Description: Shown here is a 126-nucleotide RNA from Rhodanobacter sp. C06, a member of the family "SAH (S-adenosyl-L-homocysteine) riboswitch aptamer". Pairs were carried over by alignment from the consensus structure, which is taken from published work. Lineage of the source: Bacteria > Pseudomonadota > Gammaproteobacteria > Rhodanobacteraceae > Rhodanobacter.

RNA sequence: CCCGUCGAGGGGCGCUGCGACCGUUGGUGCAUGCGGAUCCGUCCGCAACCGCCUGCACAUCCCUGUGCAGACUGCUCAUCCAACGGCCAGGCUCGGCGGUUCCUUUCACAACGGCGCCCGGUUUGU
Numbered sequence: 001c002c003c004g005u006c007g008a009g010g011g012g013c014g015c016u017g018c019g020a021c022c023g024u025u026g027g028u029g030c031a032u033g034c035g036g037a038u039c040c041g042u043c044c045g046c047a048a049c050c051g052c053c054u055g056c057a058c059a060u061c062c063c064u065g066u067g068c069a070g071a072c073u074g075c076u077c078a079u080c081c082a083a084c085g086g087c088c089a090g091g092c093u094c095g096g097c098g099g100u101u102c103c104u105u106u107c108a109c110a111a112c113g114g115c116g117c118c119c120g121g122u123u124u125g126u
Base pairs, nucleotide, nucleotide: 002099003098004097005096006095007094008093021086022085023084024083025082026081